[Rfam]
Nucleotides: 118
Base pairs, nucleotide, nucleotide: 001015002014003013004012005011016042017041018040019039020038021037023035024034025033027032047117049093050092051091052090053089054088055082056081058079059078060077062075063074064073065072098114099113100112101111102110103109
Number, partner (000 for none) and nucleotide at each position: 001015g002014g003013a004012g005011g006000u007000a008000g009000g010000u011005c012004c013003u014002c015001c016042g017041g018040g019039a020038u021037c022000g023035c024034u025033c026000a027032c028000g029000c030000a031000g032027g033025g034024g035023g036000a037021g038020g039019u040018c041017c042016c043000a044000a045000a046000c047117c048000a049093c050092c051091g052090c053089g054088a055082g056081u057000u058079g059078c060077u061000g062075c063074g064073g065072c066000u067000c068000a069000a070000u071000g072065g073064c074063c075062g076000u077060g078059g079058u080000g081056g082055u083000g084000a085000g086000c087000g088054u089053c090052g091051c092050g093049g094000a095000a096000a097000a098114g099113g100112c101111g102110c103109a104000c105000g106000a107000g108000a109103u110102g111101c112100g113099u114098c115000a116000g117047g118000u
A member of the RNA family "Group II catalytic intron D1-D4-2" from Streptosporangium album, 118 nucleotides long.
Rfam 15.1 lists 1,231 matches to the family in 625 species.
The organism belongs to Streptosporangium, within Bacteria.
It scores 103 bits against the family's covariance model.